RNA sequence: ACCGUUCAACUCUUAUGAGUCGGAAGUAAGCGAAAGCUGAAGGAACGCACC
Numbered sequence: 001a002c003c004g005u006u007c008a009a010c011u012c013u014u015a016u017g018a019g020u021c022g023g024a025a026g027u028a029a030g031c032g033a034a035a036g037c038u039g040a041a042g043g044a045a046c047g048c049a050c051c
Stems, first nucleotide, its partner, number of pairs: 003047005009020004023048001029038003

A member of the RNA family "Glutamine riboswitch aptamer (glnA leader)", 51 nucleotides long. Rfam links the family to the GO term glutamine binding.